This 100-nucleotide RNA sequence from Gadus morhua belongs to the Rfam family "Vault RNA". The organism belongs to Gadus, within Eukaryota. Rfam 15.1 lists 2,873 matches to the family in 431 species. A reference for the family is Stadler et al. (2009), "Evolution of Vault RNAs", Mol Biol Evol.

RNA sequence: GCGCUGGUGUAGCUCAGUGGUUACUUCCUACAACAAACCCGACCGGGUUUCCUGUAUCAUCCCAGCCGGGAUCAAACCACGGGCGCUGUCCAGUGUUUUU
Numbered sequence: 001g002c003g004c005u006g007g008u009g010u011a012g013c014u015c016a017g018u019g020g021u022u023a024c025u026u027c028c029u030a031c032a033a034c035a036a037a038c039c040c041g042a043c044c045g046g047g048u049u050u051c052c053u054g055u056a057u058c059a060u061c062c063c064a065g066c067c068g069g070g071a072u073c074a075a076a077c078c079a080c081g082g083g084c085g086c087u088g089u090c091c092a093g094u095g096u097u098u099u100u
Stems, first nucleotide, its partner, number of pairs: 002095006012084004017080006